[Rfam]
RNA sequence: AUAAAAACAGGGAAUGAAGUUCUCCCGUAGCGAACGCUAAAAUUGCUUUUUAAGCUGAUGACUUCUGUGGUAUG
Numbered sequence: 001a002u003a004a005a006a007a008c009a010g011g012g013a014a015u016g017a018a019g020u021u022c023u024c025c026c027g028u029a030g031c032g033a034a035c036g037c038u039a040a041a042a043u044u045g046c047u048u049u050u051u052a053a054g055c056u057g058a059u060g061a062c063u064u065c066u067g068u069g070g071u072a073u074g
Base pairs, nucleotide, nucleotide: 010026011025012024013023016065017064018063019062020061021060045055046054047053
Shown here is a 74-nucleotide RNA from Clostridium sp. KNHs216, a member of the family "Fluoride riboswitch aptamer (crcB RNA motif)".
The organism belongs to Clostridium, within Bacteria.
The match comes from Rfam's covariance-model search (43 bits).